Description
The record is a 100-nucleotide RNA from Ureibacillus sinduriensis, which matches "Purine riboswitch aptamer" in Rfam. Pairs were carried over by alignment from the consensus structure, which is taken from published work. NCBI's taxonomy places the organism under Bacteria, Caryophanales, Caryophanaceae, Ureibacillus, Ureibacillus sinduriensis. A search with the family's covariance model found it, with a score of 79 bits.

RNA sequence: AUUGAUAAAAAUAUUAUCCCACAUAUAUGCUAGAGGAUAUGGCUCUAGUGUCUCUACCCGACACCGAAAAUGUUGGACUAUGCGGGAAAGCAAGCUGUCG
Numbered sequence: 001a002u003u004g005a006u007a008a009a010a011a012u013a014u015u016a017u018c019c020c021a022c023a024u025a026u027a028u029g030c031u032a033g034a035g036g037a038u039a040u041g042g043c044u045c046u047a048g049u050g051u052c053u054c055u056a057c058c059c060g061a062c063a064c065c066g067a068a069a070a071u072g073u074u075g076g077a078c079u080a081u082g083c084g085g086g087a088a089a090g091c092a093a094g095c096u097g098u099c100g
Stems, first nucleotide, its partner, number of pairs: 018086003022082004029049007058076006